[Rfam]
RNA sequence: GGGCUCGGCUUAGCGGAGUGCACCCGCUAAGAGGCGAGAG
Numbered sequence: 001g002g003g004c005u006c007g008g009c010u011u012a013g014c015g016g017a018g019u020g021c022a023c024c025c026g027c028u029a030a031g032a033g034g035c036g037a038g039a040g
Stems, first nucleotide, its partner, number of pairs: 004038004009031007
Human immunodeficiency virus type 1 dimerisation initiation site: a 40-nucleotide sequence from Lentivirus humimdef1. It scores 48 bits against the family's covariance model. By type it is a cis-regulatory element. The literature on the family includes a 1997 paper in J Virol by McBride and Panganiban, "Position dependence of functional hairpins important for human immunodeficiency virus type 1 RNA encapsidation in vivo". The source organism's lineage runs through Viruses, Artverviricota, Ortervirales, Lentivirus and Lentivirus humimdef1. Rfam describes the family as follows. This cis element is composed of four hairpins called SL1 to SL4 (SL is for Stem Loop). This element is involved in encapsidation of the retroviral RNA an essential step in replication. It is found in HIV, SIV and CIV. It has been shown that SL1 may provide a secondary binding site for Rev. SL1, SL2, SL3 and SL4 have been independently expressed and structurally characterised. The base pairs follow the family's consensus structure, which is taken from published work. Gene Ontology term of the family: viral RNA genome packaging.